This 96-nucleotide RNA belongs to the Rfam family "SAM-I/IV (S-adenosyl methionine) riboswitch aptamer". The family's consensus secondary structure is taken from published work. Clan: SAM clan. The family has 417 seed sequences and 567 matches in Rfam 15.1. For this family Rfam cites "The aptamer core of SAM-IV riboswitches mimics the ligand-binding site of SAM-I riboswitches" (Weinberg et al., RNA, 2008). Rfam's curators put it in the seed alignment.
[Rfam]
RNA sequence: UAAGAGCAUCAGGAGUGGGACUUGUUCCCCGCCAACCUGCUUACCGAAGCAAGGUGGUUAGAGUAUGUGGCCUAAACGGCAACCAAAUCGGACUCU
Dot-bracket structure: .....((((.....(.((((.....)))))(((..((((((..[[[[))).))).)))......)))).(((.....))).......]]]].....